Small nucleolar RNA Z279/snoR105/snoR108: a 99-nucleotide RNA sequence from Ipomoea nil. The family's RNA type in Rfam is C/D-box small nucleolar RNA. Rfam links the family to the GO terms nucleolus and RNA processing. This family includes the plant snoRNAs known as Z279, snoR105 and snoR108. The base pairs follow the family's consensus structure, which was predicted with PFOLD. The family has 20 seed sequences and 906 matches in Rfam 15.1. The source organism's lineage runs through Eukaryota, Viridiplantae, Spermatophyta, lamiids and Ipomoea.

RNA sequence: GGGAUAUGAGGAGUGGUCAAUGCUCGCAUCUGGUGCGAGAUCAGUGCCUGCCUCGCCUGUUACGACAGUCAGGCACUCUUAUUUUUACCAUCUGAUCCC
Numbered sequence: 001g002g003g004a005u006a007u008g009a010g011g012a013g014u015g016g017u018c019a020a021u022g023c024u025c026g027c028a029u030c031u032g033g034u035g036c037g038a039g040a041u042c043a044g045u046g047c048c049u050g051c052c053u054c055g056c057c058u059g060u061u062a063c064g065a066c067a068g069u070c071a072g073g074c075a076c077u078c079u080u081a082u083u084u085u086u087a088c089c090a091u092c093u094g095a096u097c098c099c
Base pairs, nucleotide, nucleotide: 001099002098003097004096014090015089016088017087023039024038025037026036027035043077044076045075046074047073048072059069060068